Overview:
The record is a 77-nucleotide sequence from Pseudochelatococcus contaminans, which matches "Makes More Granules Regulator RNA (mmgR)" in Rfam.
RNA sequence: UAUCGCUGCCCUCCUUGGGCGUUUCCUCCCUAGACUUGGGCCGUACAUGUAAAUGUGCGGCCCCUUUUUUAUGGUCC
Numbered sequence: 001u002a003u004c005g006c007u008g009c010c011c012u013c014c015u016u017g018g019g020c021g022u023u024u025c026c027u028c029c030c031u032a033g034a035c036u037u038g039g040g041c042c043g044u045a046c047a048u049g050u051a052a053a054u055g056u057g058c059g060g061c062c063c064c065u066u067u068u069u070u071a072u073g074g075u076c077c
Stems, first nucleotide, its partner, number of pairs: 008020004039062009
Clan: suhB sRNA clan. It scores 70 bits against the family's covariance model. Rfam describes the family as follows. SuhB later renamed mmgR (makes more granules regulator) was a putative non-coding RNA found multiple times in the Agrobacterium tumefaciens genome and related alpha-proteobacteria.